RNA sequence: CCCCUUCACAUCGCGCGCCAAUGCCCUAUAUGGGGAGGUGCCGGUUUCGACCGGCUAUGGCGAUAAAUUGUGAUGUGCAAUAGGCACAGCGGACCCGGGGGCAGUACCCGGCGGCUCCACCAUAUACCCCGUUUCGAUGGGGCGCAUGACGGGGCCGAACCAGGAUCGACGUGUGUUGAAAGACAUUAUUUUUGCCCGGGCUGAGUAACCCGUAAAACUGUUCAAAACACACAAGUGCCAACGAUAACGAAGCACUCGCUCUCGCCGCGUAAUGUGACGGCCUAACGGCCUGAAUUUACAAAGCUAAAGCGCGGUUGGACCCACCGGGCAACAGAAGUGGAUUCC
Numbered sequence: 001c002c003c004c005u006u007c008a009c010a011u012c013g014c015g016c017g018c019c020a021a022u023g024c025c026c027u028a029u030a031u032g033g034g035g036a037g038g039u040g041c042c043g044g045u046u047u048c049g050a051c052c053g054g055c056u057a058u059g060g061c062g063a064u065a066a067a068u069u070g071u072g073a074u075g076u077g078c079a080a081u082a083g084g085c086a087c088a089g090c091g092g093a094c095c096c097g098g099g100g101g102c103a104g105u106a107c108c109c110g111g112c113g114g115c116u117c118c119a120c121c122a123u124a125u126a127c128c129c130c131g132u133u134u135c136g137a138u139g140g141g142g143c144g145c146a147u148g149a150c151g152g153g154g155c156c157g158a159a160c161c162a163g164g165a166u167c168g169a170c171g172u173g174u175g176u177u178g179a180a181a182g183a184c185a186u187u188a189u190u191u192u193u194g195c196c197c198g199g200g201c202u203g204a205g206u207a208a209c210c211c212g213u214a215a216a217a218c219u220g221u222u223c224a225a226a227a228c229a230c231a232c233a234a235g236u237g238c239c240a241a242c243g244a245u246a247a248c249g250a251a252g253c254a255c256u257c258g259c260u261c262u263c264g265c266c267g268c269g270u271a272a273u274g275u276g277a278c279g280g281c282c283u284a285a286c287g288g289c290c291u292g293a294a295u296u297u298a299c300a301a302a303g304c305u306a307a308a309g310c311g312c313g314g315u316u317g318g319a320c321c322c323a324c325c326g327g328g329c330a331a332c333a334g335a336a337g338u339g340g341a342u343u344c345c
Base pairs, nucleotide, nucleotide: 040055041054042053043052044051059196060195061194062193063192070189071188072187073186074185075184076183085175086174087173089172090171091170095111096110097109098108099107112157113156114155115154116153117152118151197212198211199210200209202224203223204222208219312326313325314324315323317343318342320340321339
RNA: Alphaproteobacteria transfer-messenger RNA